[Rfam]
Nucleotides: 093
Stems, first nucleotide, its partner, number of pairs: 001043005010031003014027003066093004071088005
Number, partner (000 for none) and nucleotide at each position: 001043c002042a003041g004040a005039c006000g007000g008000a009000a010031g011030c012029g013000a014027g015026c016025c017000c018000c019000u020000g021000g022000g023000a024000a025016g026015g027014c028000a029012c030011g031010c032000a033000a034000g035000a036000a037000u038000u039005g040004u041003c042002u043001g044000g045000c046000u047000c048000u049000u050000u051000u052000c053000g054000u055000u056000u057000c058000g059000c060000a061000a062000g063000c064000g065000g066093c067092a068091u069090g070000a071088c072087g073086u074085g075084g076000c077000g078000c079000c080000c081000c082000a083000a084075c085074c086073a087072c088071g089000c090069c091068g092067u093066g